[Rfam]
RNA sequence: UUUGACUUCAUGAUGAAGCAUUUACGGAUGUAAAUACACAUUUUAUCCGAGAGCGCAUACAACCCUGUGGAUAUUUCCGUUGCCUUCCUUCUGACCUCCUCAU
Number, nucleotide and partner (000 for none) at each position: 001u000002u000003u102004g101005a100006c000007u000008u000009c000010a000011u000012g000013a000014u000015g000016a000017a000018g000019c000020a000021u000022u000023u000024a000025c079026g078027g077028a076029u000030g000031u000032a000033a000034a000035u000036a000037c000038a000039c000040a000041u000042u000043u000044u000045a000046u000047c000048c000049g000050a000051g000052a000053g000054c000055g000056c000057a000058u000059a000060c000061a000062a000063c000064c000065c000066u000067g000068u000069g000070g000071a000072u000073a000074u000075u000076u028077c027078c026079g025080u000081u000082g000083c000084c000085u000086u000087c000088c000089u000090u000091c000092u000093g000094a000095c000096c000097u000098c000099c000100u005101c004102a003103u000